[Rfam]
RNA sequence: GCUGGUGUAGAUGAUGACGGUUUUUUUCCCCAUCAGAGCGACAGUGUUGAUCUCUCGCUGUUCAAGCCAGAUCACGUCUGACGCACCAGC
Numbered sequence: 001g002c003u004g005g006u007g008u009a010g011a012u013g014a015u016g017a018c019g020g021u022u023u024u025u026u027u028c029c030c031c032a033u034c035a036g037a038g039c040g041a042c043a044g045u046g047u048u049g050a051u052c053u054c055u056c057g058c059u060g061u062u063c064a065a066g067c068c069a070g071a072u073c074a075c076g077u078c079u080g081a082c083g084c085a086c087c088a089g090c
Base pairs, nucleotide, nucleotide: 001090002089003088004087005086006085007084008083
RNA: Small nucleolar SNORD12/SNORD106